[Rfam]
RNA sequence: AGCACCUUAUAGACUAACAGAAAUAUUGGAGCAUAAGCUUUCAUGGGCGAAGACCCACUUUCAUCUUCGCCAACGAACGCUUAUGCUCCAAUAUUUCUGUUAGUCUAUAAGGUGCU
Numbered sequence: 001a002g003c004a005c006c007u008u009a010u011a012g013a014c015u016a017a018c019a020g021a022a023a024u025a026u027u028g029g030a031g032c033a034u035a036a037g038c039u040u041u042c043a044u045g046g047g048c049g050a051a052g053a054c055c056c057a058c059u060u061u062c063a064u065c066u067u068c069g070c071c072a073a074c075g076a077a078c079g080c081u082u083a084u085g086c087u088c089c090a091a092u093a094u095u096u097c098u099g100u101u102a103g104u105c106u107a108u109a110a111g112g113u114g115c116u
Base pairs, nucleotide, nucleotide: 001116002115003114005112006111007110010109011106012105013104014103015102016101017100018099020096022095023094024093025092026091027090028089029088030087031086032085033084034083035082036081037080038079
RNA: mir-16 microRNA precursor family
Organism: Chelydra serpentina